[Rfam]
Shown here is a 151-nucleotide RNA sequence from Pantoea sp. YR343, a member of the family "EFASI RNA". NCBI's taxonomy places the organism under Bacteria, Pseudomonadati, Gammaproteobacteria, Enterobacterales, Pantoea. The family's RNA type in Rfam is small RNA. The sequence is in the family's curated seed alignment.
RNA sequence: UCAACGCGAUAUCAAGGCGACGUCAGCGAACCUGACGGACGGAGGCGUCCUGAGAAAUCAGGAACCGGCAUUAGCCGCGAUCAGCUCUGAGAGUUGUGGAGACCUCGCAACAACUCAACAUUUCGCCGCCCCGAUGCACAGAUAUCCGCUG
Numbered sequence: 001u002c003a004a005c006g007c008g009a010u011a012u013c014a015a016g017g018c019g020a021c022g023u024c025a026g027c028g029a030a031c032c033u034g035a036c037g038g039a040c041g042g043a044g045g046c047g048u049c050c051u052g053a054g055a056a057a058u059c060a061g062g063a064a065c066c067g068g069c070a071u072u073a074g075c076c077g078c079g080a081u082c083a084g085c086u087c088u089g090a091g092a093g094u095u096g097u098g099g100a101g102a103c104c105u106c107g108c109a110a111c112a113a114c115u116c117a118a119c120a121u122u123u124c125g126c127c128g129c130c131c132c133g134a135u136g137c138a139c140a141g142a143u144a145u146c147c148g149c150u151g
Base pairs, nucleotide, nucleotide: 002151003150005148008146009145010144011143012142013141018041019040021037022036023035024034025033042106043105044104045103049062050061051060052059053058082099083095084094085093086092087091